[Rfam]
This 194-nucleotide RNA sequence from Streptomyces dioscori belongs to the Rfam family "Streptomyces sRNA 4677".
The source organism's lineage runs through Bacteria, Bacillati, Actinomycetota, Kitasatosporales and Streptomyces.
From the family's description: Located in the intergenic region between anti-sigma factor SCO4677 gene and a putative regulatory protein gene SCO4676. scr4677 expression requires the SCO4677 activity and scr4677 sRNA itself seem to affect the levels of the SCO4676-associated transcripts.
Nucleotides: 194
Base pairs, nucleotide, nucleotide: 040055041054042053043052044051045050070105071104073103074102131166132165133164134163135162137160138159142155143154144153145152177192178191179190180189181188
Number, partner (000 for none) and nucleotide at each position: 001000u002000g003000a004000c005000c006000c007000g008000g009000u010000u011000c012000g013000g014000c015000c016000u017000c018000u019000c020000g021000u022000c023000a024000g025000c026000a027000c028000c029000g030000c031000g032000a033000a034000c035000c036000c037000g038000c039000a040055u041054c042053g043052c044051c045050c046000a047000c048000a049000a050045g051044g052043g053042u054041g055040a056000c057000a058000a059000u060000c061000c062000g063000c064000a065000a066000c067000u068000c069000a070105g071104c072000u073103g074102g075000a076000u077000u078000u079000c080000c081000g082000a083000c084000u085000g086000g087000u088000u089000g090000u091000c092000g093000g094000u095000c096000a097000u098000a099000u100000g101000c102074u103073c104071g105070c106000c107000c108000g109000a110000a111000c112000a113000g114000a115000c116000c117000c118000c119000a120000g121000a122000a123000c124000a125000u126000g127000c128000g129000a130000c131166g132165g133164c134163c135162c136000c137160c138159g139000g140000c141000c142155g143154g144153g145152a146000c147000u148000g149000g150000a151000c152145u153144c154143c155142c156000g157000a158000u159138c160137g161000a162135g163134g164133g165132c166131c167000u168000g169000a170000c171000c172000a173000c174000c175000g176000a177192g178191g179190a180189a181188g182000a183000a184000g185000a186000c187000g188181c189180u190179u191178c192177c193000c194000c